[Rfam]
RNA sequence: GUAGAGGAGAUGGCGCAAGGGACACAAACGAAGACUUGGGGGUUCCUGGGACCUUCAGACUUGUGUCCUCUUCUCCCCCCUCCCAG
Numbered sequence: 001g002u003a004g005a006g007g008a009g010a011u012g013g014c015g016c017a018a019g020g021g022a023c024a025c026a027a028a029c030g031a032a033g034a035c036u037u038g039g040g041g042g043u044u045c046c047u048g049g050g051a052c053c054u055u056c057a058g059a060c061u062u063g064u065g066u067c068c069u070c071u072u073c074u075c076c077c078c079c080c081u082c083c084c085a086g
Stems, first nucleotide, its partner, number of pairs: 004082004009077001012076002015073001017071001019069008036058007043050002
Dot-bracket structure: ...((((.(..((.(.(.((((((((.........(((((((((....)).)))))))...)))))))).).).))).))))....
RNA: mir-877 microRNA precursor family